[Rfam]
RNA: antisense RNA of dnaA mRNA
Organism: [Pantoea] beijingensis
RNA sequence: UUUCGCAUUGGGUUUACGCGCCAUAAUACCGUUCCCCACCGCAUGUAACAGGUGGGUUUUACCCAGACCAGUCCCACCAUA
Numbered sequence: 001u002u003u004c005g006c007a008u009u010g011g012g013u014u015u016a017c018g019c020g021c022c023a024u025a026a027u028a029c030c031g032u033u034c035c036c037c038a039c040c041g042c043a044u045g046u047a048a049c050a051g052g053u054g055g056g057u058u059u060u061a062c063c064c065a066g067a068c069c070a071g072u073c074c075c076a077c078c079a080u081a
Base pairs, nucleotide, nucleotide: 005042006041009038010037011036012035016032017031018030020029051078052077053076054075056074061072062071